[Rfam]
RNA: PyrR binding site
RNA sequence: CAUCCCUUUAAUUACAGUCCCGUGAGGCUGAGAAGGAACUAAGCAUUUAAUGGGUGUAGUCUACCUAUUACUCUGUUUAUCAACCCUCUUGCCAGACGGCAGGGGGGUUUUUCAAU
Numbered sequence: 001c002a003u004c005c006c007u008u009u010a011a012u013u014a015c016a017g018u019c020c021c022g023u024g025a026g027g028c029u030g031a032g033a034a035g036g037a038a039c040u041a042a043g044c045a046u047u048u049a050a051u052g053g054g055u056g057u058a059g060u061c062u063a064c065c066u067a068u069u070a071c072u073c074u075g076u077u078u079a080u081c082a083a084c085c086c087u088c089u090u091g092c093c094a095g096a097c098g099g100c101a102g103g104g105g106g107g108u109u110u111u112u113c114a115a116u
Base pairs, nucleotide, nucleotide: 003038005036006035007034008033009032015030016029017028018027019026048079049078050077053074054073056071057070058069059068060067082109083108084107085106086105087104088103089102090101091100092099093098